About this RNA: Rfam assigns this 88-nucleotide sequence from Apostasia shenzhenica to the family "Small nucleolar RNA U61". A reference for the family is Brown et al. (2003), "Plant snoRNA database", Nucleic Acids Res. Rfam links the family to the GO terms nucleolus and RNA processing. Its Rfam clan is "SNORD61 clan". A search with the family's covariance model found it, with a score of 65 bits. The family's consensus secondary structure was predicted with WAR.
RNA sequence: UGGCGAUGAUGAAGGCUGAUCUGUGUUCUAGAGGCGGAUGGAAGUCCACCGUUGAUGGCAGCACAAACCUCUAAGAAGUUCUGAGCUA
Numbered sequence: 001u002g003g004c005g006a007u008g009a010u011g012a013a014g015g016c017u018g019a020u021c022u023g024u025g026u027u028c029u030a031g032a033g034g035c036g037g038a039u040g041g042a043a044g045u046c047c048a049c050c051g052u053u054g055a056u057g058g059c060a061g062c063a064c065a066a067a068c069c070u071c072u073a074a075g076a077a078g079u080u081c082u083g084a085g086c087u088a
Base pairs, nucleotide, nucleotide: 001088002087003086004085